The family of this 126-nucleotide RNA from Megalops atlanticus is "Small nucleolar RNA SNORA65". Pairs were carried over by alignment from the consensus structure, which was predicted with RNAalifold. Clan: SNORA65 clan. The source organism's lineage runs through Eukaryota, Eumetazoa, Chordata, Teleostomi and Megalops. By type it is an H/ACA-box small nucleolar RNA.
[Rfam]
RNA sequence: UCCGCCACUGUGCCUGUCUGUGCGAGUGACUGGUUCAUUCCAGUGGGGGCUGAGAGAAACCCAGCUCUAGGAAGCAGGGCUGCCCAGACGGGUGGGCAGCUCUGUGCCGAAAGGCCUGGAACACAC
Numbered sequence: 001u002c003c004g005c006c007a008c009u010g011u012g013c014c015u016g017u018c019u020g021u022g023c024g025a026g027u028g029a030c031u032g033g034u035u036c037a038u039u040c041c042a043g044u045g046g047g048g049g050c051u052g053a054g055a056g057a058a059a060c061c062c063a064g065c066u067c068u069a070g071g072a073a074g075c076a077g078g079g080c081u082g083c084c085c086a087g088a089c090g091g092g093u094g095g096g097c098a099g100c101u102c103u104g105u106g107c108c109g110a111a112a113g114g115c116c117u118g119g120a121a122c123a124c125a126c
Stems, first nucleotide, its partner, number of pairs: 005046006018033001020030001021028002061119004065114002068111001070108002075104006083096003